[Rfam]
RNA sequence: GCUGCUGUGAUGACUCUUGGUCUUUAGUCGGAUACCCCUUCACUCCCUUCAUGAGUGAGACGUCCGGUCUGAGCAUGC
Numbered sequence: 001g002c003u004g005c006u007g008u009g010a011u012g013a014c015u016c017u018u019g020g021u022c023u024u025u026a027g028u029c030g031g032a033u034a035c036c037c038c039u040u041c042a043c044u045c046c047c048u049u050c051a052u053g054a055g056u057g058a059g060a061c062g063u064c065c066g067g068u069c070u071g072a073g074c075a076u077g078c
Stems, first nucleotide, its partner, number of pairs: 001078002003075003
Dot-bracket structure: (((((...................................................................))).))